mir-7386 microRNA precursor family: a 59-nucleotide RNA sequence from Vombatus ursinus.
The organism belongs to Vombatus, within Eukaryota.
RNA sequence: GUGUGGACCACAUUCUUCAAUUUGUAAAUUUUGAGCAAAGAAGUAUUUGGUCCAUAGAG
Number, nucleotide and partner (000 for none) at each position: 001g000002u056003g055004u054005g053006g052007a051008c050009c049010a048011c000012a046013u000014u000015c000016u000017u000018c000019a000020a000021u039022u038023u037024g036025u000026a000027a000028a000029u000030u000031u000032u000033g000034a000035g000036c024037a023038a022039a021040g000041a000042a000043g000044u000045a000046u012047u000048u010049g009050g008051u007052c006053c005054a004055u003056a002057g000058a000059g000